[Rfam]
RNA sequence: UGGUAGAUGCACCCUGACAUUGCCCCUGGCUUCGGCUGGGGGCAUUUACU
Numbered sequence: 001u002g003g004u005a006g007a008u009g010c011a012c013c014c015u016g017a018c019a020u021u022g023c024c025c026c027u028g029g030c031u032u033c034g035g036c037u038g039g040g041g042g043c044a045u046u047u048a049c050u
Stems, first nucleotide, its partner, number of pairs: 002013003023042008

Rfam assigns this 50-nucleotide RNA from Stenomitos frigidus to the family "Nitrogen stress-induced RNA 1".
By type it is a small RNA.
A reference for the family is Ionescu et al. (2010), "Heterocyst-specific transcription of NsiR1, a non-coding RNA encoded in a tandem array of direct repeats in cyanobacteria", J Mol Biol.